[Rfam]
RNA: Mammalian CPEB3 ribozyme
Organism: Crocodylus porosus
RNA sequence: AACUGCCAUAAGGUCCAUAGCAAAAGUGCUCACAUCAUGGCCUAGUCAGAUUCUAACAAAUCUGCAAAUUAUGCU
Dot-bracket structure: ..........[[[.[[..((((.(((((.......)))]]]]]...((((((......))))))....)).))))